[Rfam]
RNA sequence: AAGGCAUAAUGAGGAAGAAUUAUUUUAUAUCUGAUUAUUGUGAUGAUCAAUCACCUCCUACUCAUUCUGA
Dot-bracket structure: .....((.(..................(..(..........)..)................).)).....

A member of the RNA family "Small nucleolar RNA Z105" from Hibiscus trionum, 70 nucleotides long. The family's RNA type in Rfam is C/D-box small nucleolar RNA. A reference for the family is Chen et al. (2003), "The high diversity of snoRNAs in plants: identification and comparative study of 120 snoRNA genes from Oryza sativa", Nucleic Acids Res. NCBI's taxonomy places the organism under Eukaryota, Spermatophyta, Pentapetalae, Malvoideae, Hibiscus. The family has 11 seed sequences and 621 matches in Rfam 15.1. The match comes from Rfam's covariance-model search (66 bits).